[Rfam]
RNA: mir-172 microRNA precursor family
Organism: Gossypium klotzschianum
Nucleotides: 124
Stems, first nucleotide, its partner, number of pairs: 011114009021104010032093002
Number, partner (000 for none) and nucleotide at each position: 001000c002000u003000u004000a005000u006000u007000g008000c009000c010000a011114c012113u013112g014111c015110a016109g017108c018107a019106u020000c021104a022103u023102c024101a025100a026099g027098a028097u029096u030095c031000u032093c033092a034000a035000u036000c037000a038000u039000a040000a041000a042000a043000g044000g045000g046000c047000u048000u049000a050000u051000u052000g053000a054000u055000u056000g057000a058000u059000c060000a061000a062000u063000c064000a065000a066000u067000c068000a069000a070000a071000a072000a073000a074000a075000g076000a077000c078000c079000c080000u081000a082000a083000a084000a085000c086000g087000c088000c089000u090000c091000u092033u093032g094000u095030g096029a097028a098027u099026c100025u101024u102023g103022a104021u105000a106019a107018u108017g109016c110015u111014g112013c113012a114011g115000c116000a117000g118000c119000a120000a121000a122000c123000a124000g